This 331-nucleotide sequence from Enterococcus faecalis belongs to the Rfam family "Bacterial RNase P class B". The organism belongs to Enterococcus, within Bacteria. It is one of the family's seed sequences. Clan: RNaseP clan.

RNA sequence: GAGGAAAGUCCGGGCUCGCACAAGCUGAGAUGCUUGUAGUGUUCGUGCUUAGCGAAAUCAUAAGCUAAGGUACUCUUUUAGAGUAACGGCAGGAAAAAUGACUAAGGUUUCGACUAUGUCAAAGUAUCCUUGAAAGUGCCACAGUGACGAAGCGAUGUGGGAAACUCCAUCGGUGGAACGCGGUAAACCCCUCGAGCGAGCAACCCAAACAAUGGUAGGGGCGCUCUUCUAAAGGAAAUGAACGAGUAGAAGAGGCAGAGUUUACUCUGCAGAUAGAUGAUGACCGUCACCAAUUUUUCCUGAAGAAUUGGUGAUACAGAACGCGGCUUAU
Numbered sequence: 001g002a003g004g005a006a007a008g009u010c011c012g013g014g015c016u017c018g019c020a021c022a023a024g025c026u027g028a029g030a031u032g033c034u035u036g037u038a039g040u041g042u043u044c045g046u047g048c049u050u051a052g053c054g055a056a057a058u059c060a061u062a063a064g065c066u067a068a069g070g071u072a073c074u075c076u077u078u079u080a081g082a083g084u085a086a087c088g089g090c091a092g093g094a095a096a097a098a099u100g101a102c103u104a105a106g107g108u109u110u111c112g113a114c115u116a117u118g119u120c121a122a123a124g125u126a127u128c129c130u131u132g133a134a135a136g137u138g139c140c141a142c143a144g145u146g147a148c149g150a151a152g153c154g155a156u157g158u159g160g161g162a163a164a165c166u167c168c169a170u171c172g173g174u175g176g177a178a179c180g181c182g183g184u185a186a187a188c189c190c191c192u193c194g195a196g197c198g199a200g201c202a203a204c205c206c207a208a209a210c211a212a213u214g215g216u217a218g219g220g221g222c223g224c225u226c227u228u229c230u231a232a233a234g235g236a237a238a239u240g241a242a243c244g245a246g247u248a249g250a251a252g253a254g255g256c257a258g259a260g261u262u263u264a265c266u267c268u269g270c271a272g273a274u275a276g277a278u279g280a281u282g283a284c285c286g287u288c289a290c291c292a293a294u295u296u297u298u299c300c301u302g303a304a305g306a307a308u309u310g311g312u313g314a315u316a317c318a319g320a321a322c323g324c325g326g327c328u329u330a331u
Base pairs, nucleotide, nucleotide: 006329007328008327010326011325012324014322015200016199017198018197019196020037021036022035023034024033025032043195044194045193047191048069049068050067051066052065053064070087071085072084073083074082075081076080088190089189091130092129093128094127099121100120101119102118106115107114108113136188137187138184139183140182153172154171155170156169157168159166160165204220205219206218224254225253226252227251228250229249230248255270256269257268258267259266260265287314288313289312290311291310292309293308294307295306296305297304